[Rfam]
RNA: mir-15 microRNA precursor family
Organism: Echeneis naucrates
RNA sequence: GGUUGCUUUACUGUAGCAGCACGUAAAUAUUGGAGUUAAGACUAGCUGGAUCCUCCAGUAUUGAUCGUGCUGCUGAAGCAAAGCGGAC
Numbered sequence: 001g002g003u004u005g006c007u008u009u010a011c012u013g014u015a016g017c018a019g020c021a022c023g024u025a026a027a028u029a030u031u032g033g034a035g036u037u038a039a040g041a042c043u044a045g046c047u048g049g050a051u052c053c054u055c056c057a058g059u060a061u062u063g064a065u066c067g068u069g070c071u072g073c074u075g076a077a078g079c080a081a082a083g084c085g086g087a088c
Stems, first nucleotide, its partner, number of pairs: 001088001003086004014075010024064001026062010